The record is a 36-nucleotide RNA sequence from Desulfonatronospira thiodismutans, which matches "CRISPR RNA direct repeat element" in Rfam. The base pairs follow the family's consensus structure, which was predicted with WAR. Its family is annotated with defense response in the Gene Ontology. The organism belongs to Desulfonatronospira thiodismutans, within Bacteria. It scores 38 bits against the family's covariance model.
RNA sequence: GUUAUCCGUGGCAUUUUGCCACGGCCUCAUUGAAGC
Number, nucleotide and partner (000 for none) at each position: 001g000002u000003u000004a000005u000006c024007c023008g022009u021010g020011g019012c018013a000014u000015u000016u000017u000018g012019c011020c010021a009022c008023g007024g006025c000026c000027u000028c000029a000030u000031u000032g000033a000034a000035g000036c000